[Rfam]
RNA sequence: GAGCUCAGAUCAGGCAAGAUGUUGGCAUAGCUGAGGACUUUAAUAUCAGCUGUGCUGCAUGUUGCCAUCUUUGGGCUCG
Numbered sequence: 001g002a003g004c005u006c007a008g009a010u011c012a013g014g015c016a017a018g019a020u021g022u023u024g025g026c027a028u029a030g031c032u033g034a035g036g037a038c039u040u041u042a043a044u045a046u047c048a049g050c051u052g053u054g055c056u057g058c059a060u061g062u063u064g065c066c067a068u069c070u071u072u073g074g075g076c077u078c079g
Stems, first nucleotide, its partner, number of pairs: 005074005013066005019060003023057009
RNA: mir-31 microRNA precursor family
Organism: Octopus sinensis